RNA sequence: AAGCAGUCGUUCAGUGGCGCAAGCGAUUUUCCCAUGCGCUUGUGCCUAAUCUUUGACUGCGAGAUAAAAAUGUCAGAGUCAAGCGGUCCGCUAUCUGUGUAGCAUUCUGUUCAAGAUUUGACUGAUAUUU
Number, nucleotide and partner (000 for none) at each position: 001a000002a000003g060004c059005a058006g057007u056008c055009g054010u000011u000012c000013a000014g000015u000016g046017g045018c044019g043020c042021a041022a040023g039024c038025g037026a000027u000028u000029u000030u000031c000032c000033c000034a000035u000036g000037c025038g024039c023040u022041u021042g020043u019044g018045c017046c016047u000048a000049a000050u000051c000052u000053u000054u009055g008056a007057c006058u005059g004060c003061g000062a000063g000064a000065u000066a000067a000068a000069a000070a000071u000072g122073u121074c120075a119076g000077a118078g117079u116080c115081a000082a111083g110084c109085g108086g107087u000088c000089c000090g103091c102092u101093a100094u099095c000096u000097g000098u000099g094100u093101a092102g091103c090104a000105u000106u000107c086108u085109g084110u083111u082112c000113a000114a000115g080116a079117u078118u077119u075120g074121a073122c072123u000124g000125a000126u000127a000128u000129u000130u000
RNA: Caenorhabditis snoRNA ceN126
Organism: Caenorhabditis elegans